[Rfam]
RNA sequence: AUAUGCAGCACGGGAGAGAUCGUUCGACAGAACGGCGCCGACGGAGCAACCGCCCCGGAAACUCUCAGGCAAAAGGACUGUUGCUGCAGG
Dot-bracket structure: .........((((......((((........)))).(((((..(((...((.....))...))))).))).......)))).........
Glycine riboswitch aptamer: a 90-nucleotide RNA sequence from Burkholderia sp. Leaf177. The match comes from Rfam's covariance-model search (59 bits).